Source information
Shown here is a 119-nucleotide RNA from Jeongeupia sacculi, a member of the family "Glycine riboswitch aptamer". This family represents the bacterial glycine riboswitch.
RNA sequence: GGACGAGCCUCUGGAGAGCCCCGGCGUGCGUUGAUCGAACGCACCGGCCGGGCACCGAAGGCGCAAGGCGAUUCGCCAGAAUCGUUGAAACGCUCAGGUAAAAGGACAGAGGAAGGACG
Dot-bracket structure: .......((((((......((((((.....................)))))).(((((..(((...((((((((....))))))))....))))).))).......)))))).......